The family of this 72-nucleotide RNA from Rhodococcus erythropolis is "Actinobacteria sRNA Ms_AS-8".
[Rfam]
RNA sequence: CCUGAUCAGAGCUGAUGGAAUUUCAGAUCAUUCCCGGGAAGGUGCGCCCACUCACGCCGCCUCGCCGAGAAC
Numbered sequence: 001c002c003u004g005a006u007c008a009g010a011g012c013u014g015a016u017g018g019a020a021u022u023u024c025a026g027a028u029c030a031u032u033c034c035c036g037g038g039a040a041g042g043u044g045c046g047c048c049c050a051c052u053c054a055c056g057c058c059g060c061c062u063c064g065c066c067g068a069g070a071a072c
Base pairs, nucleotide, nucleotide: 003030004029005028006027007026008023009022010021038053039052042051043050044049
Notes:
For this family Rfam cites "Identification of small RNAs in Mycobacterium smegmatis using heterologous Hfq" (Li et al., RNA, 2013). Lineage of the source: Bacteria > Actinomycetota > Mycobacteriales > Nocardiaceae > Rhodococcus. The sequence is in the family's curated seed alignment.